[Rfam]
Rfam assigns this 85-nucleotide RNA sequence from Muraenolepis orangiensis to the family "Mammalian CPEB3 ribozyme".
RNA sequence: UGAACUCAGUUGGGGAUCAAAGGCAGAAGCGUUCUCGUCGCGAUCCUGGUCGCAGGCUUUUAAACAAAGCCUGCGAAAUUCCACC
Numbered sequence: 001u002g003a004a005c006u007c008a009g010u011u012g013g014g015g016a017u018c019a020a021a022g023g024c025a026g027a028a029g030c031g032u033u034c035u036c037g038u039c040g041c042g043a044u045c046c047u048g049g050u051c052g053c054a055g056g057c058u059u060u061u062a063a064a065c066a067a068a069g070c071c072u073g074c075g076a077a078a079u080u081c082c083a084c085c
Stems, first nucleotide, its partner, number of pairs: 013047006023084001026081003029041003053073007
Taxonomically the source falls in Muraenolepis (Eukaryota, Eumetazoa, Actinopteri, Neopterygii).